[Rfam]
RNA sequence: AAAUUUAACGAAGCGCCAGGGCUUGGCAGCGGCCAAGUUGACGAGGUGGGGGAUCUCGGAAGAAUCGGCGGGUGACCCCCGGUUGGGCCACGACCGUUAAAGAAUUGACAAAACCUCCAGUGAUGGACGGGACAAAAGAUUCGGGUGGCUUAG
Numbered sequence: 001a002a003a004u005u006u007a008a009c010g011a012a013g014c015g016c017c018a019g020g021g022c023u024u025g026g027c028a029g030c031g032g033c034c035a036a037g038u039u040g041a042c043g044a045g046g047u048g049g050g051g052g053a054u055c056u057c058g059g060a061a062g063a064a065u066c067g068g069c070g071g072g073u074g075a076c077c078c079c080c081g082g083u084u085g086g087g088c089c090a091c092g093a094c095c096g097u098u099a100a101a102g103a104a105u106u107g108a109c110a111a112a113a114c115c116u117c118c119a120g121u122g123a124u125g126g127a128c129g130g131g132a133c134a135a136a137a138g139a140u141u142c143g144g145g146u147g148g149c150u151u152a153g
Stems, first nucleotide, its partner, number of pairs: 020039008048079004057068001059066002080096006102142005114130002116127004
Dot-bracket structure: ...................((((((((....))))))))........((((.....(.((....)).).......))))((((((.....)))))).....(((((.......((((((....)))).)).......)))))...........
This 153-nucleotide RNA sequence from Capillibacterium thermochitinicola belongs to the Rfam family "glmS glucosamine-6-phosphate activated ribozyme aptamer". From the family's description: This entry contains a glucosamine-6-phosphate activated ribozyme that is found in the mRNA for GlmS. GlmS is an enzyme that uses fructose-6-phosphate and glutamine to generate glucosamine-6-phosphate. The ribozyme catalyses self cleavage of the glmS mRNA that is thought to regulate GlmS activity. Lineage of the source: Bacteria > Bacillati > Bacillota > Capillibacterium. For this family Rfam cites "Backbone and nucleobase contacts to glucosamine-6-phosphate in the glmS ribozyme" (Jansen et al., Nat Struct Mol Biol, 2006).